[Rfam]
RNA: tRNA
RNA sequence: GGGCCGAUAGAUCAGGGGAAGAUCGCUUCCUUGGCAUGGAAGAGGCCGCGGGUUCAAUUCCCGCUCGGUCCA
Numbered sequence: 001g002g003g004c005c006g007a008u009a010g011a012u013c014a015g016g017g018g019a020a021g022a023u024c025g026c027u028u029c030c031u032u033g034g035c036a037u038g039g040a041a042g043a044g045g046c047c048g049c050g051g052g053u054u055c056a057a058u059u060c061c062c063g064c065u066c067g068g069u070c071c072a
Stems, first nucleotide, its partner, number of pairs: 001071007010024004026042005048064005